Record summary: Shown here is a 99-nucleotide RNA sequence from Streptomyces hainanensis, a member of the family "Glycine riboswitch aptamer".
RNA sequence: CGAUCCCGCGCGGGAGAGUCCCGCCGCCCACCGGGUGGCGAGCGCCGAAGGAGCAAAUCCUCCCCGGAAUCUCUCAGGCCCAUGUACCGCGCGAGUGAG
Numbered sequence: 001c002g003a004u005c006c007c008g009c010g011c012g013g014g015a016g017a018g019u020c021c022c023g024c025c026g027c028c029c030a031c032c033g034g035g036u037g038g039c040g041a042g043c044g045c046c047g048a049a050g051g052a053g054c055a056a057a058u059c060c061u062c063c064c065c066g067g068a069a070u071c072u073c074u075c076a077g078g079c080c081c082a083u084g085u086a087c088c089g090c091g092c093g094a095g096u097g098a099g
Stems, first nucleotide, its partner, number of pairs: 007093007020042001022040005044079003047075002051073003058066001
Dot-bracket structure: ......(((((((......(.(((((.........))))).).(((((..(((....(.......)....))))).))).......)))))))......